[Rfam]
RNA sequence: GGGAAACGGGGUGGGGGCUGGGGCAGUGAGCCACCCCAGGCCUUAAGCAGUACAGGCUCA
Numbered sequence: 001g002g003g004a005a006a007c008g009g010g011g012u013g014g015g016g017g018c019u020g021g022g023g024c025a026g027u028g029a030g031c032c033a034c035c036c037c038a039g040g041c042c043u044u045a046a047g048c049a050g051u052a053c054a055g056g057c058u059c060a
Stems, first nucleotide, its partner, number of pairs: 014044006021037003028059005

Ma3 gene ribosomal frameshift signal: a 60-nucleotide sequence from Echinops telfairi. The source organism's lineage runs through Eukaryota, Vertebrata, Euteleostomi, Eutheria and Echinops. Pairs were carried over by alignment from the consensus structure, which is taken from published work. Rfam's curators put it in the seed alignment. The literature on the family includes a 2006 paper in J Biol Chem by Wills et al., "A functional -1 ribosomal frameshift signal in the human paraneoplastic Ma3 gene". Gene Ontology term of the family: translational frameshifting. Rfam classes the family as a frameshift element.